[Rfam]
RNA: Small nucleolar RNA SNORD59
Organism: Conger conger
RNA sequence: CCUUCUGUGAUGAUUGAAACAGUUUGACUUUCGUUCUUCUGAGUCUGAUGAAGCCAAACUUUCUGUCCUGAGAAGG
Dot-bracket structure: (((.(..................................................................).)))